[Rfam]
RNA sequence: UUGACCGUGUACUCCCAGAUGUCCUCGGGAUCGGCGAGCGUCUUGUCGCCGAAGUGGUCGCCGUUCGCGAGCACGCCGAGGGUCGUCUCCUCGCCGUACUGCCCGGGGCCGAUCUUGCUGACCUUGCCGUGCGCGAUCAGGAAAGCCUGGUCCGACGUGUGCCCGAACUCGACGAUCACGUCGCCCGUUUCGUAGCUGCGCUGCUCGAACCGCUCGGCCAGCGCCGCGAGCACGCCCUGGUCGUCGAAGCCGCGCAGCAGCGGCAGUUCGGCGAGCUCGGCCGGGAUCACGCGGACCUCGGUGCCGGUGCUGAUGAAGGUGACGCGGCCGUCGCCGACGGUGUAGCUCAUGCGGCGGUUGACCCGGUACGUGCCGCCGUCGGCCUGGACCCACGGCAGCACGCGCAGCAGCCACCGUGAGGUGAUGGACUGCAUCUGGGGGACGGACUUGGUCGUGGUCGCCAGUUGCCGCGCCGCCGCGGGGCUCAGGCUCUGGCGCCCGG
Numbered sequence: 001u002u003g004a005c006c007g008u009g010u011a012c013u014c015c016c017a018g019a020u021g022u023c024c025u026c027g028g029g030a031u032c033g034g035c036g037a038g039c040g041u042c043u044u045g046u047c048g049c050c051g052a053a054g055u056g057g058u059c060g061c062c063g064u065u066c067g068c069g070a071g072c073a074c075g076c077c078g079a080g081g082g083u084c085g086u087c088u089c090c091u092c093g094c095c096g097u098a099c100u101g102c103c104c105g106g107g108g109c110c111g112a113u114c115u116u117g118c119u120g121a122c123c124u125u126g127c128c129g130u131g132c133g134c135g136a137u138c139a140g141g142a143a144a145g146c147c148u149g150g151u152c153c154g155a156c157g158u159g160u161g162c163c164c165g166a167a168c169u170c171g172a173c174g175a176u177c178a179c180g181u182c183g184c185c186c187g188u189u190u191c192g193u194a195g196c197u198g199c200g201c202u203g204c205u206c207g208a209a210c211c212g213c214u215c216g217g218c219c220a221g222c223g224c225c226g227c228g229a230g231c232a233c234g235c236c237c238u239g240g241u242c243g244u245c246g247a248a249g250c251c252g253c254g255c256a257g258c259a260g261c262g263g264c265a266g267u268u269c270g271g272c273g274a275g276c277u278c279g280g281c282c283g284g285g286a287u288c289a290c291g292c293g294g295a296c297c298u299c300g301g302u303g304c305c306g307g308u309g310c311u312g313a314u315g316a317a318g319g320u321g322a323c324g325c326g327g328c329c330g331u332c333g334c335c336g337a338c339g340g341u342g343u344a345g346c347u348c349a350u351g352c353g354g355c356g357g358u359u360g361a362c363c364c365g366g367u368a369c370g371u372g373c374c375g376c377c378g379u380c381g382g383c384c385u386g387g388a389c390c391c392a393c394g395g396c397a398g399c400a401c402g403c404g405c406a407g408c409a410g411c412c413a414c415c416g417u418g419a420g421g422u423g424a425u426g427g428a429c430u431g432c433a434u435c436u437g438g439g440g441g442a443c444g445g446a447c448u449u450g451g452u453c454g455u456g457g458u459c460g461c462c463a464g465u466u467g468c469c470g471c472g473c474c475g476c477c478g479c480g481g482g483g484c485u486c487a488g489g490c491u492c493u494g495g496c497g498c499c500c501g502g
Stems, first nucleotide, its partner, number of pairs: 007389002010386002014382002018328001021325002025322003031316002037311006045305001047303006054233002058229004063224002065111001067109002075103001079100002082097002085094002117222004122217002126213002129210002131206001133204003138198003150191001154189004159184002161177001164174002234296001236294002240290002243287003253279002256277003261270002329342004351379007361371002391431002396426002399423003403418003407415001437476001439474002443470003448464005480500003484497001486495001488493001
Dot-bracket structure: ......((.((..((..(..((..(((...((....((((((..(.((((((.((..((((.(((.((......(...((.((.((......)).)).))..)....)).).....((((.((..((.(((.(((..(((.........(...((((.(((..((.......))..).....)).)))).)....)))...))).)..)).))..)).)))))).))))..))(.((..((.(((.......((.(((..((......))....))))).....))).))..)).).)))))).)))))))...))...))).))..)((((......))))........(((((((...((.......)).))))))).))..)).)).((...((.(((.(((.(.......))))..))).))...)).....(.((..(((..(((((.......)))))...)))..)).)...(((.(.(.(....).).))))..
The record is a 502-nucleotide RNA from Amycolatopsis acidiphila, which matches "Saccharopolyspora sRNA 350" in Rfam. The family's consensus secondary structure was predicted with RNAfold. Taxonomically the source falls in Amycolatopsis (Bacteria, Bacillati, Actinomycetes, Pseudonocardiaceae). A reference for the family is Liu et al. (2013), "Prediction and characterization of small non-coding RNAs related to secondary metabolites in Saccharopolyspora erythraea", PLoS One. It is annotated as an antisense RNA.